[Rfam]
RNA sequence: GGAGGAUUUUGGCCCUCCGUCAUCGGCCGGUAGGGGCAGGUGACAAAUCGCCAUAGCGCUGCAUUGGUAAAGAGCCUUUGUGGUGAGCGGCUAUGGAGAAGGCACGGCUUGACUGUGUCAGA
Numbered sequence: 001g002g003a004g005g006a007u008u009u010u011g012g013c014c015c016u017c018c019g020u021c022a023u024c025g026g027c028c029g030g031u032a033g034g035g036g037c038a039g040g041u042g043a044c045a046a047a048u049c050g051c052c053a054u055a056g057c058g059c060u061g062c063a064u065u066g067g068u069a070a071a072g073a074g075c076c077u078u079u080g081u082g083g084u085g086a087g088c089g090g091c092u093a094u095g096g097a098g099a100a101g102g103c104a105c106g107g108c109u110u111g112a113c114u115g116u117g118u119c120a121g122a
Stems, first nucleotide, its partner, number of pairs: 001018005019044006026037003048122002051096002054093004058084002061081003066076003101119006
The record is a 122-nucleotide RNA from Anaerohalosphaera lusitana, which matches "Group II catalytic intron D1-D4-2" in Rfam. For this family Rfam cites "The ins and outs of group II introns" (Bonen and Vogel, Trends Genet, 2001). A search with the family's covariance model found it, with a score of 92 bits. Lineage of the source: Bacteria > Pseudomonadati > Phycisphaerae > Anaerohalosphaeraceae > Anaerohalosphaera. Gene Ontology term of the family: Group II intron splicing.